[Rfam]
RNA sequence: GGUUUUUCAGAGGCAGAGCCCUCUAAAAAUC
Numbered sequence: 001g002g003u004u005u006u007u008c009a010g011a012g013g014c015a016g017a018g019c020c021c022u023c024u025a026a027a028a029a030u031c
Stems, first nucleotide, its partner, number of pairs: 001031007009024005014018001

Description
Rfam assigns this 31-nucleotide RNA sequence from Octopus sinensis to the family "Iron response element II". Its family is annotated with response to iron ion in the Gene Ontology. Lineage of the source: Eukaryota > Opisthokonta > Metazoa > Cephalopoda > Octopus. The base pairs follow the family's consensus structure, which is taken from published work. IRE, TFRC, SLC40A1, SDHB, SLC11A2, CDC42BPA, ACO2, ALAS2_H.SAPIENS, CDC14A, EPAS1, ALAS2, qoxD, Hao1, NDUFS1, transferrin, Aconitate. It is annotated as a cis-regulatory element.